[Rfam]
RNA sequence: AACCAUUUAAUAUUAACACACACACAUAUCGACACAUACACUUGGGUGCAUCGCGGAAUAACUUCCAAGGUGUUGGUGCUAUGGGAUAUGUGGAGGCCUAAC
Numbered sequence: 001a002a003c004c005a006u007u008u009a010a011u012a013u014u015a016a017c018a019c020a021c022a023c024a025c026a027u028a029u030c031g032a033c034a035c036a037u038a039c040a041c042u043u044g045g046g047u048g049c050a051u052c053g054c055g056g057a058a059u060a061a062c063u064u065c066c067a068a069g070g071u072g073u074u075g076g077u078g079c080u081a082u083g084g085g086a087u088a089u090g091u092g093g094a095g096g097c098c099u100a101a102c
Stems, first nucleotide, its partner, number of pairs: 023092008035083004040077003048073005

This 102-nucleotide RNA sequence from Pseudoalteromonas ruthenica belongs to the Rfam family "t44 RNA". The source organism's lineage runs through Bacteria, Pseudomonadati, Pseudomonadota, Pseudoalteromonadaceae and Pseudoalteromonas. By type it is a small RNA.